[Rfam]
RNA sequence: CUGCAUCCACUGAUAGACCUGAAGCAGGCUUCAUUGGCUUCUGUGUUUGCAUAGAGAUGCUAAAGUAAGUUUUCCUCUCACUUUCUUUCUGCCUGUUUAUGGCAGCACAGAAUAAAUUGAGGAAAACAUGA
Numbered sequence: 001c002u003g004c005a006u007c008c009a010c011u012g013a014u015a016g017a018c019c020u021g022a023a024g025c026a027g028g029c030u031u032c033a034u035u036g037g038c039u040u041c042u043g044u045g046u047u048u049g050c051a052u053a054g055a056g057a058u059g060c061u062a063a064a065g066u067a068a069g070u071u072u073u074c075c076u077c078u079c080a081c082u083u084u085c086u087u088u089c090u091g092c093c094u095g096u097u098u099a100u101g102g103c104a105g106c107a108c109a110g111a112a113u114a115a116a117u118u119g120a121g122g123a124a125a126a127c128a129u130g131a
Stems, first nucleotide, its partner, number of pairs: 003060005011051002014049005022040004027035002073123005084111003089105005
Dot-bracket structure: ..(((((...((.(((((...((((.((.....)).))))....)))))))....)))))............(((((......(((..(((((.......)))))...))).......)))))........
RNA: Small nucleolar RNA SNORA31
Organism: Oryzias sinensis